[Rfam]
RNA sequence: AAAUAAUGUUUUUAAGUGUCUAGUGAUGAAUUUCAUAGGGCAGAUUCUGAGGUGAAAAUUUAGUUCAUCAUUGAUUGUCCUAUUAUGAAAUCUGAAGACACUUGAAAACU
Numbered sequence: 001a002a003a004u005a006a007u008g009u010u011u012u013u014a015a016g017u018g019u020c021u022a023g024u025g026a027u028g029a030a031u032u033u034c035a036u037a038g039g040g041c042a043g044a045u046u047c048u049g050a051g052g053u054g055a056a057a058a059u060u061u062a063g064u065u066c067a068u069c070a071u072u073g074a075u076u077g078u079c080c081u082a083u084u085a086u087g088a089a090a091u092c093u094g095a096a097g098a099c100a101c102u103u104g105a106a107a108a109c110u
Stems, first nucleotide, its partner, number of pairs: 013104009030091007037081004043075001046074002049071001051069006